[Rfam]
RNA sequence: CCAGGCUAGGGUAACUUGGCUGUCACUUUAUGUGGGUUGUAAGAGGAUGUUUGAUAAGCUGUCAUCUGAGAGCUCGUUGAGUUAUUUCGUUAAGAGUCACCGCCCUAACCGAGCUCGUAGUCACUUGUGGGAUUCAUCAGUAAUGAGAAUUUCACUUGUGUUAAAGAAUCUCGCAAUGGCUUAGGCUGGAAACAGAGCAAGCAAUAGGGAUCGCUAUGAGCGGCGGAAGGAUACCGGACUCGUGAAAUAAUGUGGCUUAUCGUGACACUUAUUAAACAGA
Dot-bracket structure: ((.(((((((....)))))))....(((............))).)).((((((((((..((((((.((((....(....(.(.(((((((...((((..(((.((...(((.((((((((((((..(((((((((.(((....))))))))))))..)))(...)..(((((....(.(((....(((....)))....))).)..))))).)))))))))..)))..))....))))))))))))))).)...)))))..)))))).))))))))))..
Shown here is a 280-nucleotide sequence from Paramecium primaurelia, a member of the family "Metazoan signal recognition particle RNA". The literature on the family includes a 2002 paper in Curr Opin Struct Biol by Wild et al., "Towards the structure of the mammalian signal recognition particle". The family's consensus secondary structure is taken from published work. The signal recognition particle (SRP) is a universally conserved ribonucleoprotein. It is involved in the co-translational targeting of proteins to membranes. The eukaryotic SRP consists of a 300-nucleotide 7S RNA and six proteins: SRPs 72, 68, 54, 19, 14, and 9. Archaeal SRP consists of a 7S RNA and homologues of the eukaryotic SRP19 and SRP54 proteins. Eukaryotic and archaeal 7S RNAs have very similar secondary structures, as represented by this family. Eight helical elements fold into the Alu and S domains, separated by a long linker region. The Alu domain is thought to mediate the peptide chain elongation retardation function of the SRP. The universally conserved helix which interacts with the SRP54 M domain mediates signal sequence recognition. In eukaryotes and archaea, the SRP19-helix 6 complex is thought to be involved in SRP assembly and stabilises helix 8 for SRP54 binding. The Signal Recognition Particle Database (SRPDB) provides compilations of SRP components, with phylogenetic data and structural illustrations. Many sequences below the threshold for this family are clearly closely related, but are most likely to be SRP RNA derived pseudogenes. The human genome in particular is known to contain a large amount of SRP RNA related sequence, including Alu repeats. While the threshold of this family is set high so as to minimise the number of hits to such regions, it is likely that some remain.